[Rfam]
RNA: U7 small nuclear RNA
Organism: Piliocolobus tephrosceles
RNA sequence: AAGUGUUAGAGCUCUUUUAGAAUUUGUCUAGCAGGCUUUUCAGGUUUUGCCGGAAAGCAACU
Numbered sequence: 001a002a003g004u005g006u007u008a009g010a011g012c013u014c015u016u017u018u019a020g021a022a023u024u025u026g027u028c029u030a031g032c033a034g035g036c037u038u039u040u041c042a043g044g045u046u047u048u049g050c051c052g053g054a055a056a057g058c059a060a061c062u
Stems, first nucleotide, its partner, number of pairs: 035058007043050001